Fumarate/nitrate reductase regulator sRNA: a 113-nucleotide RNA from Enterobacterales bacterium CwR94.
[Rfam]
RNA sequence: GCAGGUGAAUACAACGUCAAGCGAUGGGCGUUGUGCUCCAUAUUGUCUUACUUCCUUUUUGAAUUACUGCAUAGCACAUUGAUUCGAGAUACGCCGGCUGCCAGCCGGCUUUU
Numbered sequence: 001g002c003a004g005g006u007g008a009a010u011a012c013a014a015c016g017u018c019a020a021g022c023g024a025u026g027g028g029c030g031u032u033g034u035g036c037u038c039c040a041u042a043u044u045g046u047c048u049u050a051c052u053u054c055c056u057u058u059u060u061g062a063a064u065u066a067c068u069g070c071a072u073a074g075c076a077c078a079u080u081g082a083u084u085c086g087a088g089a090u091a092c093g094c095c096g097g098c099u100g101c102c103a104g105c106c107g108g109c110u111u112u113u
Stems, first nucleotide, its partner, number of pairs: 001046004007038002010035009061085006068076003093109007

The organism belongs to Enterobacterales, within Bacteria. It scores 112 bits against the family's covariance model.